[Rfam]
Shown here is a 105-nucleotide RNA from Homo sapiens, a member of the family "Y RNA". A search with the family's covariance model found it, with a score of 54 bits. From the family's description: Y RNAs are components of the Ro ribonucleoprotein particle (Ro RNP), in association with Ro60 and La proteins. It is annotated as a non-coding RNA gene.
RNA sequence: GGCUGGUCUGAGUGCAGUGGGGUGUACAAGGAAUUGAUUACAAGCAGUUACAGGUUUCUUUGCUCCUUUUCCAUUUCCACUGCUGCUUCACUUCACUAGCCUUUA
Number, nucleotide and partner (000 for none) at each position: 001g101002g100003c099004u098005g097006g096007u095008c000009u000010g093011a092012g000013u000014g086015c085016a081017g080018u079019g078020g077021g076022g000023u000024g000025u000026a000027c000028a000029a000030g000031g000032a064033a000034u062035u000036g060037a059038u000039u000040a000041c000042a000043a000044g000045c000046a000047g000048u000049u000050a000051c000052a000053g000054g000055u000056u000057u000058c000059u037060u036061u000062g034063c000064u032065c000066c000067u000068u000069u000070u000071c000072c000073a000074u000075u000076u021077c020078c019079a018080c017081u016082g000083c000084u000085g015086c014087u000088u000089c000090a000091c000092u011093u010094c000095a007096c006097u005098a004099g003100c002101c001102u000103u000104u000105a000